RNA sequence: GUAGGCUAUGGAGACAUGAGUCCAGAGACACUUUUUGGGAAACUUGUAGGCUCCGUCUGUUGUAUUUGCGGUGUCCUUGUCAUUGCACUUCCCAUUCCCAUCAUUGUGAAUAAC
Numbered sequence: 001g002u003a004g005g006c007u008a009u010g011g012a013g014a015c016a017u018g019a020g021u022c023c024a025g026a027g028a029c030a031c032u033u034u035u036u037g038g039g040a041a042a043c044u045u046g047u048a049g050g051c052u053c054c055g056u057c058u059g060u061u062g063u064a065u066u067u068g069c070g071g072u073g074u075c076c077u078u079g080u081c082a083u084u085g086c087a088c089u090u091c092c093c094a095u096u097c098c099c100a101u102c103a104u105u106g107u108g109a110a111u112a113a114c
Stems, first nucleotide, its partner, number of pairs: 001114002004111001007108005013102002018097004037077004049063001
The record is a 114-nucleotide RNA sequence from Lepeophtheirus salmonis, which matches "Potassium channel RNA editing signal" in Rfam.
The family has 85 seed sequences and 14,095 matches in Rfam 15.1.
The match comes from Rfam's covariance-model search (87 bits).
About the family: This family represents a group of sequences related to the human potassium channel Kv1.1 hairpin element which directs the efficient modification of an adenosine to inosine by an adenosine deaminase acting on RNA (ADAR). The ADAR modification causes an isoleucine/valine recoding event which lies in the ion-conducting pore of the potassium channel.
The source organism's lineage runs through Eukaryota, Panarthropoda, Arthropoda, Pancrustacea and Lepeophtheirus.
Rfam links the family to the GO term adenosine to inosine editing.
It is annotated as a cis-regulatory element.